[Rfam]
RNA: Small nucleolar RNA SNORA32
RNA sequence: UGAUCAUUACCAAGGCUUUUAGAAUUCAGUUUCUUACUUGCUGUGGACGUGACCAUAAAAAGACUUCCCUCUAGGUUUUCUAUCUGCUACCUUGCUAGCUAGCAAUCCACCUAUUAGGAACAUUU
Dot-bracket structure: ...((((..(((..............(((........)))...)))..))))..............((.....(((........(((((..........)))))....))).....)).......